[Rfam]
RNA sequence: AAGAGUGCGGUGAUGAGGCUAUUUUUUGUGGACUAGAGUUUCUGAUCUGGGUUUAACCCUGAAUCUGAUUACCAAACCCUUGGCUGUCUGAGCACCCUU
Numbered sequence: 001a002a003g004a005g006u007g008c009g010g011u012g013a014u015g016a017g018g019c020u021a022u023u024u025u026u027u028g029u030g031g032a033c034u035a036g037a038g039u040u041u042c043u044g045a046u047c048u049g050g051g052u053u054u055a056a057c058c059c060u061g062a063a064u065c066u067g068a069u070u071a072c073c074a075a076a077c078c079c080u081u082g083g084c085u086g087u088c089u090g091a092g093c094a095c096c097c098u099u
Stems, first nucleotide, its partner, number of pairs: 001099003005095004041068002046063001048061004
The record is a 99-nucleotide RNA sequence from Trema orientale, which matches "Small nucleolar RNA Z157/R69/R10" in Rfam. For this family Rfam cites "The high diversity of snoRNAs in plants: identification and comparative study of 120 snoRNA genes from Oryza sativa" (Chen et al., Nucleic Acids Res, 2003). It scores 81 bits against the family's covariance model. The source organism's lineage runs through Eukaryota, Streptophyta, Streptophytina, Rosales and Trema. It is annotated as a C/D-box small nucleolar RNA.